[Rfam]
Rfam assigns this 147-nucleotide RNA from Pseudomonas flexibilis to the family "radC RNA".
The family's RNA type in Rfam is cis-regulatory element.
Rfam 15.1 lists 500 matches to the family in 142 species.
RNA sequence: AUCCUGCCUCCGUGCCCCGCUGAUUGCGAUCAGCAGCAUGCCCAGGCAGCCAGGAUCUUCAAGGCUGCGGCGCGGCUUGACCGCGUUGAUCACACCAGUUCGCUCCGGCAUCCCUGCGCGAACGGCCAUCGGCAACGGUGGUGAUGC
Numbered sequence: 001a002u003c004c005u006g007c008c009u010c011c012g013u014g015c016c017c018c019g020c021u022g023a024u025u026g027c028g029a030u031c032a033g034c035a036g037c038a039u040g041c042c043c044a045g046g047c048a049g050c051c052a053g054g055a056u057c058u059u060c061a062a063g064g065c066u067g068c069g070g071c072g073c074g075g076c077u078u079g080a081c082c083g084c085g086u087u088g089a090u091c092a093c094a095c096c097a098g099u100u101c102g103c104u105c106c107g108g109c110a111u112c113c114c115u116g117c118g119c120g121a122a123c124g125g126c127c128a129u130c131g132g133c134a135a136c137g138g139u140g141g142u143g144a145u146g147c
Stems, first nucleotide, its partner, number of pairs: 011040004019034006046068006054091004069087007118147003125142007